Potassium channel RNA editing signal: a 114-nucleotide RNA from Polypterus senegalus.
The family's consensus secondary structure is taken from published work.
Taxonomically the source falls in Polypterus (Eukaryota, Vertebrata, Euteleostomi, Polypteridae).
For this family Rfam cites "Control of human potassium channel inactivation by editing of a small mRNA hairpin" (Bhalla et al., Nat Struct Mol Biol, 2004).
The family has 85 seed sequences and 14,095 matches in Rfam 15.1.
RNA sequence: CUGGGCUAUGGAGACAUGUACCCUGUUACUUGGUCUGGCAUGCUGGUCGGGGCUUUAUGUGCCUUGGCUGGGGUGCUGACCAUUGCUAUGCCAGUGCCCGUCAUUGUGAAUAAC
Numbered sequence: 001c002u003g004g005g006c007u008a009u010g011g012a013g014a015c016a017u018g019u020a021c022c023c024u025g026u027u028a029c030u031u032g033g034u035c036u037g038g039c040a041u042g043c044u045g046g047u048c049g050g051g052g053c054u055u056u057a058u059g060u061g062c063c064u065u066g067g068c069u070g071g072g073g074u075g076c077u078g079a080c081c082a083u084u085g086c087u088a089u090g091c092c093a094g095u096g097c098c099c100g101u102c103a104u105u106g107u108g109a110a111u112a113a114c
Stems, first nucleotide, its partner, number of pairs: 002113001004111001007108005013102003018097004037077004049063002